Shown here is a 73-nucleotide sequence from Metarhizium majus, a member of the family "tRNA". Its family is annotated with triplet codon-amino acid adaptor activity in the Gene Ontology. The match comes from Rfam's covariance-model search (66 bits).

RNA sequence: GAGAAAUUAGUUCAAUUGGCAGAACGUUUGUUUUACACACAAAAUGUUAAAGGUUCAAGUCCUUUAUUGCUCA
Number, nucleotide and partner (000 for none) at each position: 001g072002a071003g070004a000005a068006a067007u066008u000009a000010g025011u024012u023013c022014a000015a000016u000017u000018g000019g000020c000021a000022g013023a012024a011025c010026g000027u043028u042029u041030g040031u039032u000033u000034u000035a000036c000037a000038c000039a031040c030041a029042a028043a027044a000045u000046g000047u000048u000049a065050a064051a063052g062053g061054u000055u000056c000057a000058a000059g000060u000061c053062c052063u051064u050065u049066a007067u006068u005069g000070c003071u002072c001073a000